[Rfam]
RNA: Small nucleolar RNA SNORD103/SNORD85
Organism: Eolophus roseicapilla
RNA sequence: UCUGGUGAUGGCAGCACAUUUGCCCUCACUGAGGGCAGUGUUCAUGGAUGAGAGCAGCUCGAUGCAGCUGAGCCAGA
Numbered sequence: 001u002c003u004g005g006u007g008a009u010g011g012c013a014g015c016a017c018a019u020u021u022g023c024c025c026u027c028a029c030u031g032a033g034g035g036c037a038g039u040g041u042u043c044a045u046g047g048a049u050g051a052g053a054g055c056a057g058c059u060c061g062a063u064g065c066a067g068c069u070g071a072g073c074c075a076g077a
Stems, first nucleotide, its partner, number of pairs: 001077006